[Rfam]
RNA sequence: GUACACUCGCGAAGCGGAAACCUCCUCCCUUCCAAAUCGCGGGUUAAGACCGGCACCUCCUCCCGCCGGUCUCUCAUAGGAAAAGGCCGGGUCCUCCUCCCCCCGGCCUUUUUCCUU
Numbered sequence: 001g002u003a004c005a006c007u008c009g010c011g012a013a014g015c016g017g018a019a020a021c022c023u024c025c026u027c028c029c030u031u032c033c034a035a036a037u038c039g040c041g042g043g044u045u046a047a048g049a050c051c052g053g054c055a056c057c058u059c060c061u062c063c064c065g066c067c068g069g070u071c072u073c074u075c076a077u078a079g080g081a082a083a084a085g086g087c088c089g090g091g092u093c094c095u096c097c098u099c100c101c102c103c104c105g106g107c108c109u110u111u112u113u114c115c116u117u
Base pairs, nucleotide, nucleotide: 007042008041009040011038012037016033017032047072048071049070050069051068052067053066081112082111083110084109085108086107087106088105089104090103091102
This 117-nucleotide RNA sequence from Neoaquamicrobium microcysteis belongs to the Rfam family "Alphaproteobacterial ar14". The source organism's lineage runs through Bacteria, Alphaproteobacteria, Hyphomicrobiales, Phyllobacteriaceae and Neoaquamicrobium. It scores 62 bits against the family's covariance model. About the family: Smr14C2 was renamed NfeR1 (Nodule Formation Efficiency RNA) highly expressed in salt stress and during the symbiotic interaction on legume roots. On this family, see del Val et al., RNA Biol 2012: "A survey of sRNA families in alpha-proteobacteria". The pairing is the family consensus, mapped onto this sequence.